The family of this 336-nucleotide part of an RNA from Heterodermia speciosa is "Eukaryotic large subunit ribosomal RNA". The organism belongs to Heterodermia, within Eukaryota.

[Rfam]
RNA sequence: GAUUUUUUUUAUUAUAUCAAAACAGAAUUCGAUAAACGUUAAAUUGUUUAUUUAUUAAAUUAUUGAUGAAUAUAAUUAACAUAAAUUUUUAAUAACAAAAAUCUUGUUAAAUUAAUCGAUUUUAUCGAUUAAACAUUUGAUUCGAAAAAAUUUUUAAAUUUUAAAUUUGAUGAAUAUUUCGCGUAAAAUUCGUAAUAAAAUUUAUGUAAAACGCGAUAAAAUGUCGAUUAAUCAAUUAUAAUUAAUUUAAAAUACGUGUUACGAAACGUAACAAUACGUUUUGUCAAUAAAUAAAAAACGUGAAUUAAAUUUAAAUGGUCGUGAAAUAAAUUAAUU
Numbered sequence: 001g002a003u004u005u006u007u008u009u010u011a012u013u014a015u016a017u018c019a020a021a022a023c024a025g026a027a028u029u030c031g032a033u034a035a036a037c038g039u040u041a042a043a044u045u046g047u048u049u050a051u052u053u054a055u056u057a058a059a060u061u062a063u064u065g066a067u068g069a070a071u072a073u074a075a076u077u078a079a080c081a082u083a084a085a086u087u088u089u090u091a092a093u094a095a096c097a098a099a100a101a102u103c104u105u106g107u108u109a110a111a112u113u114a115a116u117c118g119a120u121u122u123u124a125u126c127g128a129u130u131a132a133a134c135a136u137u138u139g140a141u142u143c144g145a146a147a148a149a150a151u152u153u154u155u156a157a158a159u160u161u162u163a164a165a166u167u168u169g170a171u172g173a174a175u176a177u178u179u180c181g182c183g184u185a186a187a188a189u190u191c192g193u194a195a196u197a198a199a200a201u202u203u204a205u206g207u208a209a210a211a212c213g214c215g216a217u218a219a220a221a222u223g224u225c226g227a228u229u230a231a232u233c234a235a236u237u238a239u240a241a242u243u244a245a246u247u248u249a250a251a252a253u254a255c256g257u258g259u260u261a262c263g264a265a266a267c268g269u270a271a272c273a274a275u276a277c278g279u280u281u282u283g284u285c286a287a288u289a290a291a292u293a294a295a296a297a298a299c300g301u302g303a304a305u306u307a308a309a310u311u312u313a314a315a316u317g318g319u320c321g322u323g324a325a326a327u328a329a330a331u332u333a334a335u336u
Stems, first nucleotide, its partner, number of pairs: 001306004005300001006297005013038001016033003020029002040287001043284002314332003318327002